Manganese Mn2+ riboswitch aptamer (yybP-ykoY): a 170-nucleotide RNA sequence from Hydrogenophaga crassostreae.

[Rfam]
RNA sequence: UCACCCGUCAUCGGGGAGUAGCUGCCCUGCAACUUGCAGGGGUUUGCGUCAACAUACUGGGCCCACACGGCCCUGGCGCCGACAGCCUCUGGCCUGGCAAGACCUUUGACCACAAUGCCUCCGGUAGGGCCGGGGAUGCACUGUGGUCUUUCAUUGGUCUGGCCCUCAGG
Numbered sequence: 001u002c003a004c005c006c007g008u009c010a011u012c013g014g015g016g017a018g019u020a021g022c023u024g025c026c027c028u029g030c031a032a033c034u035u036g037c038a039g040g041g042g043u044u045u046g047c048g049u050c051a052a053c054a055u056a057c058u059g060g061g062c063c064c065a066c067a068c069g070g071c072c073c074u075g076g077c078g079c080c081g082a083c084a085g086c087c088u089c090u091g092g093c094c095u096g097g098c099a100a101g102a103c104c105u106u107u108g109a110c111c112a113c114a115a116u117g118c119c120u121c122c123g124g125u126a127g128g129g130c131c132g133g134g135g136a137u138g139c140a141c142u143g144u145g146g147u148c149u150u151u152c153a154u155u156g157g158u159c160u161g162g163c164c165c166u167c168a169g170g
Base pairs, nucleotide, nucleotide: 026040027039028038042083043082044081046079047078048077049076050075051074059073060072061071062070063069088170089169090168

Lineage of the source: Bacteria > Pseudomonadati > Betaproteobacteria > Comamonadaceae > Hydrogenophaga. This RNA was originally discovered in E. coli during a large scale screen and was named SraF. The family was later found to exist upstream of related families of protein genes in many bacteria, including the the yybP and ykoK genes in B. subtilis.